[Rfam]
RNA sequence: UUAAAAGAAUAGAAACCCUGACAGUGUUCUUUUCCCCAUGGGGGCCCAGUGUGCAGUGGCUGCAAAUAACAGCCUCCUUGGUAGUGUACGCAACCUGUUGCCUGUACAGGUUGCCCUAAGGGACCUUGGAGACAACU
Dot-bracket structure: .(..(...............((.(..((((..........))))..).)).)..)........................(((........((((((...........)))))).........)))............
RNA: Small nucleolar RNA SNORA70
Organism: Bos grunniens